Rfam assigns this 113-nucleotide RNA from Gloeobacter violaceus to the family "SAM riboswitch aptamer (S box leader)". Taxonomically the source falls in Gloeobacter violaceus (Bacteria, Cyanophyceae, Gloeobacteraceae, Gloeobacter). Pairs were carried over by alignment from the consensus structure, which is taken from published work. It is one of the family's seed sequences.
RNA sequence: GACUUAUCCAGAGCAGGCGUAGGGAACAGGCCCGGUGACGCCACGGCAACCGCCCACUAGCAACGGGAAAAGGUGCCAAUUCCUGCGGUUCCUCACGAACCGGAAGAUAAGUC
Number, nucleotide and partner (000 for none) at each position: 001g113002a112003c111004u110005u109006a108007u107008c106009c000010a000011g000012a000013g044014c000015a000016g042017g041018c040019g000020u000021a000022g033023g032024g031025a000026a000027c085028a084029g083030g082031c024032c023033c022034g000035g000036u000037g000038a000039c000040g018041c017042c016043a000044c013045g077046g076047c075048a074049a000050c073051c072052g000053c067054c066055c065056a000057c000058u000059a000060g000061c000062a000063a000064c000065g055066g054067g053068a000069a000070a000071a000072g051073g050074u048075g047076c046077c045078a000079a000080u000081u105082c030083c029084u028085g027086c102087g101088g100089u099090u098091c097092c000093u000094c000095a000096c000097g091098a090099a089100c088101c087102g086103g000104a000105a081106g008107a007108u006109a005110a004111g003112u002113c001